[Rfam]
RNA sequence: GUCCUAUGAAGAUAGAUCCCAAGGCUUGUUUCUCAAAACAUUUGCACUGACCGCCUAAGAGCUUUCGCCUUCGCUAGGCUUGAGAGUUUAUGCUGCUUUUAUCCUUCCUUGGAUGUCUGAGGCC
Number, nucleotide and partner (000 for none) at each position: 001g124002u000003c122004c121005u000006a000007u000008g000009a000010a000011g000012a000013u000014a000015g000016a000017u000018c000019c000020c000021a000022a000023g000024g000025c000026u000027u000028g000029u000030u000031u000032c000033u000034c000035a000036a000037a000038a000039c000040a000041u000042u000043u000044g000045c000046a000047c000048u000049g000050a000051c000052c000053g000054c000055c000056u000057a000058a000059g000060a000061g087062c086063u085064u084065u083066c082067g000068c000069c000070u000071u000072c000073g000074c000075u000076a000077g000078g000079c000080u000081u000082g066083a065084g064085a063086g062087u061088u000089u000090a000091u000092g000093c000094u000095g000096c000097u000098u000099u000100u000101a000102u000103c000104c000105u000106u000107c000108c000109u000110u000111g000112g000113a000114u000115g000116u000117c000118u000119g000120a000121g004122g003123c000124c001
Small nucleolar RNA SNORD14: a 124-nucleotide sequence from Solanum tuberosum. Its family is annotated with RNA processing and nucleolus in the Gene Ontology. It scores 65 bits against the family's covariance model. NCBI's taxonomy places the organism under Eukaryota, Tracheophyta, asterids, Solanales, Solanum. Rfam describes the family as follows. U14 small nucleolar RNA (U14 snoRNA) is required for early cleavages of eukaryotic precursor rRNAs. In yeasts, this molecule possess a stem-loop region (known as the Y-domain) which is essential for function. A similar structure, but with a different consensus sequence, is found in plants, but is absent in vertebrates.